Group II catalytic intron D1-D4-6: a 243-nucleotide sequence from Pseudolycoriella hygida.

RNA sequence: AAAGUCCUGUUAUGGAAGGAGUAGCUAGCUCCACCAUAUAGCGAGUCUUGCACUGCUGAAGGUAGCAACAAUGGUGAAGCGUAGACAGCGAAACAUUCGAGCCGAAACCAAAUGGUGAACGUGAUAGGUCCGAAAUUUUUGGUGAUAGUGGAAGUCGAUGUGUUAUACAGCACAGUAGACAAAAGAAAACUGGAGAUCAACCUAGCAAAUCCAAUAGUUUCCAACCACCGGGGUCUCAGGCGU
Numbered sequence: 001a002a003a004g005u006c007c008u009g010u011u012a013u014g015g016a017a018g019g020a021g022u023a024g025c026u027a028g029c030u031c032c033a034c035c036a037u038a039u040a041g042c043g044a045g046u047c048u049u050g051c052a053c054u055g056c057u058g059a060a061g062g063u064a065g066c067a068a069c070a071a072u073g074g075u076g077a078a079g080c081g082u083a084g085a086c087a088g089c090g091a092a093a094c095a096u097u098c099g100a101g102c103c104g105a106a107a108c109c110a111a112a113u114g115g116u117g118a119a120c121g122u123g124a125u126a127g128g129u130c131c132g133a134a135a136u137u138u139u140u141g142g143u144g145a146u147a148g149u150g151g152a153a154g155u156c157g158a159u160g161u162g163u164u165a166u167a168c169a170g171c172a173c174a175g176u177a178g179a180c181a182a183a184a185g186a187a188a189a190c191u192g193g194a195g196a197u198c199a200a201c202c203u204a205g206c207a208a209a210u211c212c213a214a215u216a217g218u219u220u221c222c223a224a225c226c227a228c229c230g231g232g233g234u235c236u237c238a239g240g241c242g243u
Base pairs, nucleotide, nucleotide: 012037013036014035015034018032019031020030021029039091041089042088045086046085047084048083049081050080051076052075053074054073055072057070058069061066127234129232130231131230132229148228149227150226151225154180155179156178159174160173161172162171185222187220188219189218190217191216192215
Overview
The source organism's lineage runs through Eukaryota, Opisthokonta, Bilateria, Panorpida and Pseudolycoriella. Pairs were carried over by alignment from the consensus structure.